[Rfam]
RNA sequence: GGGUGGGCCCGAAAGGAUGCCCCCUCCCGAAGGAAACCCCGGUGACGGGGGAGUACGAGGGAGGGGGUCCAGGGUCCGCCCUUACGUCUAGAAACACGG
Numbered sequence: 001g002g003g004u005g006g007g008c009c010c011g012a013a014a015g016g017a018u019g020c021c022c023c024c025u026c027c028c029g030a031a032g033g034a035a036a037c038c039c040c041g042g043u044g045a046c047g048g049g050g051g052a053g054u055a056c057g058a059g060g061g062a063g064g065g066g067g068u069c070c071a072g073g074g075u076c077c078g079c080c081c082u083u084a085c086g087u088c089u090a091g092a093a094a095c096a097c098g099g
Stems, first nucleotide, its partner, number of pairs: 001081010015070002022065007032056001037050005085098003
RNA: Archaeal large subunit ribosomal RNA, nucleotides 569 to 667
Organism: Pyrobaculum arsenaticum